The family of this 158-nucleotide RNA from Leersia perrieri is "MIR2118 microRNA precursor family".
Rfam 15.1 lists 2,377 matches to the family in 45 species.
The base pairs follow the family's consensus structure, which was predicted with RNAalifold.
[Rfam]
Nucleotides: 158
Base pairs, nucleotide, nucleotide: 009149010148011147012146013145015143016142017141021139022138023137026134027133028132029131030130031129032128034126035125037123038122039121040120041119042118043117044116045115046114047113049110050109051108053106055105056104057103058102059101060100061099
Number, partner (000 for none) and nucleotide at each position: 001000g002000c003000a004000g005000g006000g007000a008000a009149g010148a011147g012146g013145a014000a015143g016142a017141a018000a019000g020000a021139g022138a023137g024000u025000c026134u027133c028132u029131a030130a031129g032128a033000g034126c035125g036000a037123u038122g039121g040120g041119a042118a043117u044116a045115g046114g047113a048000a049110c050109a051108u052000g053106g054000a055105g056104g057103a058102a059101a060100g061099c062000c063000u064000a065000a066000g067000c068000u069000a070000a071000a072000u073000u074000u075000u076000c077000u078000a079000u080000u081000c082000c083000a084000g085000a086000a087000g088000a089000u090000u091000u092000g093000c094000u095000c096000u097000g098000a099061g100060u101059u102058u103057u104056c105055c106053u107000g108051a109050u110049g111000c112000c113047u114046c115045c116044u117043a118042u119041u120040c121039c122038u123037a124000c125035u126034g127000a128032u129031c130030u131029u132028a133027g134026g135000u136000a137023u138022u139021c140000c141017u142016u143015c144000c145013u146012c147011u148010u149009c150000c151000u152000c153000c154000u155000u156000u157000u158000a